[Rfam]
RNA sequence: CUCGAUAAAGGCAAACCGGUCGCAAGGCCGGGACGCAAAGCUAGAGGACGGCGGCUUGCGAAAGCAAGUUGACGUUAGCUCGGCCGCCGAAG
Numbered sequence: 001c002u003c004g005a006u007a008a009a010g011g012c013a014a015a016c017c018g019g020u021c022g023c024a025a026g027g028c029c030g031g032g033a034c035g036c037a038a039a040g041c042u043a044g045a046g047g048a049c050g051g052c053g054g055c056u057u058g059c060g061a062a063a064g065c066a067a068g069u070u071g072a073c074g075u076u077a078g079c080u081c082g083g084c085c086g087c088c089g090a091a092g
Stems, first nucleotide, its partner, number of pairs: 001092001003089002011036002016031006034078001040084003044081003047076003
RNA: c-di-GMP-I-GGC riboswitch aptamer
Organism: Lacipirellula parvula